The family of this 139-nucleotide sequence from Paenibacillus arenilitoris is "Group II catalytic intron D1-D4-4". The base pairs follow the family's consensus structure. Group II introns are found in rRNA, tRNA and mRNA of organelles in fungi, plants and protists, and also in mRNA in bacteria. For this family Rfam cites "The ins and outs of group II introns" (Bonen and Vogel, Trends Genet, 2001). The organism belongs to Paenibacillus, within Bacteria. Rfam 15.1 lists 840 matches to the family in 506 species.
[Rfam]
RNA sequence: UAGCCGGUGAAAGUCCGGUCGGGGUAGGGGCCAAGCCGCCUCGUAGCUAGCAGGCGUACGUCCGAGAGAUCGGACGAGACGAAGCCCUGCGAAAAUCUAUGCGAAGCAUAGGGAAGCAAAUCCACAGGCCGUAACAUCC
Numbered sequence: 001u002a003g004c005c006g007g008u009g010a011a012a013g014u015c016c017g018g019u020c021g022g023g024g025u026a027g028g029g030g031c032c033a034a035g036c037c038g039c040c041u042c043g044u045a046g047c048u049a050g051c052a053g054g055c056g057u058a059c060g061u062c063c064g065a066g067a068g069a070u071c072g073g074a075c076g077a078g079a080c081g082a083a084g085c086c087c088u089g090c091g092a093a094a095a096u097c098u099a100u101g102c103g104a105a106g107c108a109u110a111g112g113g114a115a116g117c118a119a120a121u122c123c124a125c126a127g128g129c130c131g132u133a134a135c136a137u138c139c
Stems, first nucleotide, its partner, number of pairs: 020043005050090005055081003059076002064071002097111005116132002